[Rfam]
RNA sequence: GGACAGAACUCUGGAGAGACCCUUAAUUGGGCGCCGAAGGUGCACCGCAGAUUAUCAUCUGCUUAAACUCUCAGGCAAAAGGACAGAGACGCGAAU
Numbered sequence: 001g002g003a004c005a006g007a008a009c010u011c012u013g014g015a016g017a018g019a020c021c022c023u024u025a026a027u028u029g030g031g032c033g034c035c036g037a038a039g040g041u042g043c044a045c046c047g048c049a050g051a052u053u054a055u056c057a058u059c060u061g062c063u064u065a066a067a068c069u070c071u072c073a074g075g076c077a078a079a080a081g082g083a084c085a086g087a088g089a090c091g092c093g094a095a096u
Stems, first nucleotide, its partner, number of pairs: 009088005020031003033076003036072002040070001042068001047062006
The record is a 96-nucleotide RNA sequence from Paenibacillus polymyxa, which matches "Glycine riboswitch aptamer" in Rfam. This family represents the bacterial glycine riboswitch. Glycine riboswitches usually consist of two metabolite-binding aptamers domains with similar structures in tandem. The aptamers cooperatively bind glycine to regulate the expression of downstream genes. In Bacillus subtilis, this riboswitch is found upstream of the gcvT operon which controls glycine degradation. It scores 56 bits against the family's covariance model. Taxonomically the source falls in Paenibacillus polymyxa (Bacteria, Bacillati, Bacillota, Caryophanales).